[Rfam]
RNA sequence: AAACAGCCCCCUAUGUAUUGGAUCUUUGACAGUUUUGGCCCCCAAUGUCAAUUUUGACUUGGUCUUCGCUGAUGUGGCAAUUUAAAAUAAAUAAAUAUUUUUUUAAAAAUAUAUUUUUUUUUAAAUUUAAAAAUAAAAAAUAUACUUUUAUUAAAAAAUAUACUUUUUUAAAUAAUUAAAAAAAAAAAAAAAUACACGCGGCAUCCACGUGUGCGUUGACCGAGUCAAAAUUGGCCUUGGGGGCCAAAACUGUCAAAGGUCCAAUACAUAGGGGGCUGUUU
Numbered sequence: 001a002a003a004c005a006g007c008c009c010c011c012u013a014u015g016u017a018u019u020g021g022a023u024c025u026u027u028g029a030c031a032g033u034u035u036u037g038g039c040c041c042c043c044a045a046u047g048u049c050a051a052u053u054u055u056g057a058c059u060u061g062g063u064c065u066u067c068g069c070u071g072a073u074g075u076g077g078c079a080a081u082u083u084a085a086a087a088u089a090a091a092u093a094a095a096u097a098u099u100u101u102u103u104u105a106a107a108a109a110u111a112u113a114u115u116u117u118u119u120u121u122u123a124a125a126u127u128u129a130a131a132a133a134u135a136a137a138a139a140a141u142a143u144a145c146u147u148u149u150a151u152u153a154a155a156a157a158a159u160a161u162a163c164u165u166u167u168u169u170a171a172a173u174a175a176u177u178a179a180a181a182a183a184a185a186a187a188a189a190a191a192a193u194a195c196a197c198g199c200g201g202c203a204u205c206c207a208c209g210u211g212u213g214c215g216u217u218g219a220c221c222g223a224g225u226c227a228a229a230a231u232u233g234g235c236c237u238u239g240g241g242g243g244c245c246a247a248a249a250c251u252g253u254c255a256a257a258g259g260u261c262c263a264a265u266a267c268a269u270a271g272g273g274g275g276c277u278g279u280u281u
Base pairs, nucleotide, nucleotide: 001281002280004278005277006276007275008274012270013269014268015267016266017265018264019263020262021261022260023259024258025257026256027255028254029253030252031251032250033249034248035247036246037245038244039243040242041241042240043239044238045237072210073209075207076206077205
Dot-bracket structure: ((.(((((...((((((((((((((((((((((((((((((((((..........................((.(((...............................................................................................................................))).))..........................))))))))))))))))))))))))))))))))))...))))).))